[Rfam]
The record is a 76-nucleotide RNA sequence from Crocodylus porosus, which matches "Mammalian CPEB3 ribozyme" in Rfam. About the family: The mammalian CPEB3 ribozyme is a self cleaving RNA located in the second intron of the CPEB3 gene which belongs to a family of genes regulating messenger RNA polyadenylation.

RNA sequence: GUUGCAAAGUCGAAGCCAGAGCAGAAGAGCUCACAGCACGGCUGUGCCAGAUUUCAGUGAAUCUGUGAAUUCUGCU
Numbered sequence: 001g002u003u004g005c006a007a008a009g010u011c012g013a014a015g016c017c018a019g020a021g022c023a024g025a026a027g028a029g030c031u032c033a034c035a036g037c038a039c040g041g042c043u044g045u046g047c048c049a050g051a052u053u054u055c056a057g058u059g060a061a062u063c064u065g066u067g068a069a070u071u072c073u074g075c076u
Base pairs, nucleotide, nucleotide: 014043015042016041017040020076021075022074023073024072025071026070027039029037048065049064050063051062052061053060054059
The match comes from Rfam's covariance-model search (47 bits).
Lineage of the source: Eukaryota > Archosauria > Crocodylia > Longirostres > Crocodylus.